[Rfam]
RNA sequence: AUUGCUGUCUUACCAGGCACGCUUAGAUCUGCCCAUGCCCGUCUAAUACUGCCUGGUAAUGCCGCCAAU
Number, nucleotide and partner (000 for none) at each position: 001a000002u068003u067004g066005c000006u064007g063008u000009c061010u059011u058012a057013c056014c055015a054016g053017g052018c051019a050020c000021g000022c000023u046024u045025a044026g043027a042028u000029c000030u000031g000032c000033c000034c000035a000036u000037g000038c000039c000040c000041g000042u027043c026044u025045a024046a023047u000048a000049c000050u019051g018052c017053c016054u015055g014056g013057u012058a011059a010060u000061g009062c000063c007064g006065c000066c004067a003068a002069u000
Shown here is a 69-nucleotide sequence from Gymnorhina tibicen, a member of the family "mir-8/mir-141/mir-200 microRNA precursor family". Rfam 15.1 lists 2,669 matches to the family in 883 species. Clan: mir-8 microRNA precursor clan.